[Rfam]
RNA sequence: AAACCCUCGAUAGGCUAAAAAGCUAAGAUGGAGUGUAGUAUUUGUUCAUAUCAGUUUAAUAUCUGAUAUAUAGGCUACCUGUCUAUGUGAUAUUAAAAUAUUUUUUAAGGGGAGGAUUUUCUCAAUAGCUUGCUUUUGGAGUCCAAAAGCUUUGCUCAUGCUCUGCACUGCUGCAAAGGUCCGGCGCACCCCAC
Dot-bracket structure: ......((..(.((((....)))).)))....................((((((........)))))).((((((.....))))))...........................(((((((....(.((....)).).)))))))....((.(((.(..(((...........)))..)...))).)).......

A member of the RNA family "U2 spliceosomal RNA" from Apium graveolens, 194 nucleotides long.
The family is grouped with related families in Rfam's "U2 clan".
It is annotated as a spliceosomal small nuclear RNA.
U2 is a small nuclear RNA (snRNA) component of the spliceosome (involved in pre-mRNA splicing). Complementary binding between U2 snRNA (in an area lying towards the 5' end but 3' to hairpin I) and the branchpoint sequence (BPS) of the intron results the bulging out of an unpaired adenosine, on the BPS, which initiates a nucleophilic attack at the intronic 5' splice site, thus starting the first of two transesterification reactions that mediate splicing.
A reference for the family is Zwieb (1997), "The uRNA database", Nucleic Acids Res.